[Rfam]
Nucleotides: 110
Stems, first nucleotide, its partner, number of pairs: 005108008016097015032081001035078009046067002
Number, partner (000 for none) and nucleotide at each position: 001000g002000u003000u004000a005108u006107u007106g008105g009104a010103u011102u012101u013000a014000c015000c016097u017096c018095a019094a020093u021092c022091c023090a024089c025088a026087u027086g028085u029084g030083u031000g032081g033000a034000a035078g036077u037076g038075g039074a040073u041072u042071g043070g044000g045000a046067u047066g048000a049000a050000a051000u052000u053000u054000a055000g056000u057000u058000c059000a060000a061000a062000g063000u064000u065000u066047u067046a068000c069000u070043c071042c072041a073040a074039u075038c076037u077036a078035c079000c080000c081032c082000a083030a084029u085028a086027c087026a088025u089024g090023u091022g092021g093020a094019u095018u096017g097016a098000u099000a100000c101012g102011a103010a104009u105008c106007c107006a108005a109000c110000c